[Rfam]
RNA sequence: CCUGCCAAGCCUCUCAUUGCGAUGCUCAAAUGGGCAGGU
Numbered sequence: 001c002c003u004g005c006c007a008a009g010c011c012u013c014u015c016a017u018u019g020c021g022a023u024g025c026u027c028a029a030a031u032g033g034g035c036a037g038g039u
Stems, first nucleotide, its partner, number of pairs: 001038006008026003
RNA: abiF RNA
Organism: Tannerella forsythia